[Rfam]
RNA sequence: UGGUCCCGAUUCACAUUCAUUGCUGUCGGUGGGUUUUUUUUUCAGGAUGACUCGCCGGACAAUGAAUGAGAACUGUGGUCUU
Numbered sequence: 001u002g003g004u005c006c007c008g009a010u011u012c013a014c015a016u017u018c019a020u021u022g023c024u025g026u027c028g029g030u031g032g033g034u035u036u037u038u039u040u041u042u043c044a045g046g047a048u049g050a051c052u053c054g055c056c057g058g059a060c061a062a063u064g065a066a067u068g069a070g071a072a073c074u075g076u077g078g079u080c081u082u
Base pairs, nucleotide, nucleotide: 002081003080004078005077007075008074014068015067016066017065018064019063020062021061022060026058027057028056029055030054031053033051034050035049
RNA: mir-181 microRNA precursor family